[Rfam]
RNA sequence: GGCGGCCCCUGUGUCGGGUCUGCCCUUCCCACCCGGUACCUGAUACGGCCGGAGUGG
Numbered sequence: 001g002g003c004g005g006c007c008c009c010u011g012u013g014u015c016g017g018g019u020c021u022g023c024c025c026u027u028c029c030c031a032c033c034c035g036g037u038a039c040c041u042g043a044u045a046c047g048g049c050c051g052g053a054g055u056g057g
Base pairs, nucleotide, nucleotide: 001024002023003022004021005020007018008017009016029057030056031055033052034051035050036049037048

Source information
The record is a 57-nucleotide RNA sequence from Allostigmatella aurantiaca, which matches "L17-Actino-Proteobacteria ribosomal protein leader" in Rfam. The family's consensus secondary structure is taken from published work. It is annotated as a cis-regulatory leader. For this family Rfam cites "Discovery of 20 novel ribosomal leader candidates in bacteria and archaea" (Eckert and Weinberg, BMC Microbiol, 2020).